[Rfam]
RNA: MIR8024 microRNA precursor family
RNA sequence: AUAAAGAAUUUGAAGACUUCAACUUGCAUCCUUGAAGAAUUUGAAAGACUUCAAUUUGCAGACUUGGAGAUUUUUUAAGAUUUCAAGU
Numbered sequence: 001a002u003a004a005a006g007a008a009u010u011u012g013a014a015g016a017c018u019u020c021a022a023c024u025u026g027c028a029u030c031c032u033u034g035a036a037g038a039a040u041u042u043g044a045a046a047g048a049c050u051u052c053a054a055u056u057u058g059c060a061g062a063c064u065u066g067g068a069g070a071u072u073u074u075u076u077a078a079g080a081u082u083u084c085a086a087g088u
Stems, first nucleotide, its partner, number of pairs: 002085001004083003009078002012075003017069005025060004032054006